[Rfam]
RNA sequence: UUCGUGGCAAGUCCGGCGAGGGAUGGCAUCAUCCGUUUUUUUAACGGAGACCAGAAGCCUGUGUUCGGCUUUUAGUGCUAUCCCGGAGAAGGUCUGAGAUUGAAGCCGAGCUCUCGUUUCGAGAGCUUCAUGUCCUAGACGGACACGUUGUGAAAACGACGGGGAGGGAACAGAAAUCCCUCGGUUCCUUGACGGGUGUCGAGGAUCGAGUCUGACGAUUGCGUUUGUGCCGACGAAGGUUUUUCAGAACCCGAGGUCGCGAUCGUUCGGUUGGAAGCUCUCCUGGCUAGCUGAAAGGAGUCCAAUGCUGGAAGUUCGAGUUAUUCUCUUGGGCGAACUCAAUUCAGACUACUCUGCUGCGAA
Numbered sequence: 001u002u003c004g005u006g007g008c009a010a011g012u013c014c015g016g017c018g019a020g021g022g023a024u025g026g027c028a029u030c031a032u033c034c035g036u037u038u039u040u041u042u043a044a045c046g047g048a049g050a051c052c053a054g055a056a057g058c059c060u061g062u063g064u065u066c067g068g069c070u071u072u073u074a075g076u077g078c079u080a081u082c083c084c085g086g087a088g089a090a091g092g093u094c095u096g097a098g099a100u101u102g103a104a105g106c107c108g109a110g111c112u113c114u115c116g117u118u119u120c121g122a123g124a125g126c127u128u129c130a131u132g133u134c135c136u137a138g139a140c141g142g143a144c145a146c147g148u149u150g151u152g153a154a155a156a157c158g159a160c161g162g163g164g165a166g167g168g169a170a171c172a173g174a175a176a177u178c179c180c181u182c183g184g185u186u187c188c189u190u191g192a193c194g195g196g197u198g199u200c201g202a203g204g205a206u207c208g209a210g211u212c213u214g215a216c217g218a219u220u221g222c223g224u225u226u227g228u229g230c231c232g233a234c235g236a237a238g239g240u241u242u243u244u245c246a247g248a249a250c251c252c253g254a255g256g257u258c259g260c261g262a263u264c265g266u267u268c269g270g271u272u273g274g275a276a277g278c279u280c281u282c283c284u285g286g287c288u289a290g291c292u293g294a295a296a297g298g299a300g301u302c303c304a305a306u307g308c309u310g311g312a313a314g315u316u317c318g319a320g321u322u323a324u325u326c327u328c329u330u331g332g333g334c335g336a337a338c339u340c341a342a343u344u345c346a347g348a349c350u351a352c353u354c355u356g357c358u359g360c361g362a363a
Base pairs, nucleotide, nucleotide: 001363002362003361004360007357008356009355012313014311016309020084021083022082023081024080025079026078027077028076029075094347095346096345097344098343104288105287106286107285131145132144133143134142135141146161147160148159149158150157151156162284163283164282165281166280167279168278182270184268316333317332318330319329320328
The record is a 363-nucleotide sequence from Notodromas monacha, which matches "Nuclear RNase P" in Rfam. On this family, see Frank et al., RNA 2000: "Phylogenetic-comparative analysis of the eukaryal ribonuclease P RNA". Clan: RNaseP clan.